[Rfam]
RNA sequence: CGGAAGUACUUUUAGCCAUAUCAGCUUUAUGUGAAUCAUAGUCCACAUAAAGCUGAUAUGGCUAAAAGUACUUCCG
Numbered sequence: 001c002g003g004a005a006g007u008a009c010u011u012u013u014a015g016c017c018a019u020a021u022c023a024g025c026u027u028u029a030u031g032u033g034a035a036u037c038a039u040a041g042u043c044c045a046c047a048u049a050a051a052g053c054u055g056a057u058a059u060g061g062c063u064a065a066a067a068g069u070a071c072u073u074c075c076g
Base pairs, nucleotide, nucleotide: 001076002075003074004073005072007070008069009068010067011066012065013064014063015062016061017060018059019058020057021056022055023054024053025052026051028049029048030047031046032045033044

Record summary: mir-9/mir-79 microRNA precursor family: a 76-nucleotide RNA sequence from Gongylonema pulchrum. For this family Rfam cites "Temporal regulation of microRNA expression in Drosophila melanogaster mediated by hormonal signals and broad-Complex gene activity" (Sempere et al., Dev Biol, 2003). The organism belongs to Gongylonema, within Eukaryota. The family has 214 seed sequences and 5,647 matches in Rfam 15.1.